RNA sequence: CUCACCUGCGAGUACCGGGCGGUUUCGUGCCAGAUGGGCUCAACGGAUCCCUCAGUCCCAACCUGAAAAGGCGGACUCGAGAUGAGAGGGUGGUUUUUAUGGAUGUCUUUUGUCCGCCCGUCAAAGCCCACCGGAUUCUCGCCCGCGAGCUUUCUGGUGAGGUAACAAAAACUGGUCCUUGUU
Numbered sequence: 001c002u003c004a005c006c007u008g009c010g011a012g013u014a015c016c017g018g019g020c021g022g023u024u025u026c027g028u029g030c031c032a033g034a035u036g037g038g039c040u041c042a043a044c045g046g047a048u049c050c051c052u053c054a055g056u057c058c059c060a061a062c063c064u065g066a067a068a069a070g071g072c073g074g075a076c077u078c079g080a081g082a083u084g085a086g087a088g089g090g091u092g093g094u095u096u097u098u099a100u101g102g103a104u105g106u107c108u109u110u111u112g113u114c115c116g117c118c119c120g121u122c123a124a125a126g127c128c129c130a131c132c133g134g135a136u137u138c139u140c141g142c143c144c145g146c147g148a149g150c151u152u153u154c155u156g157g158u159g160a161g162g163u164a165a166c167a168a169a170a171a172c173u174g175g176u177c178c179u180u181g182u183u
Base pairs, nucleotide, nucleotide: 007045008044010041011040012039015037016036017035019028020027021026050084051081052080053079055077062073064069102177103176104175105172106171108170109169110168111167112166113165127162128161129159130158131157132156133153134152135151138149139148140147141146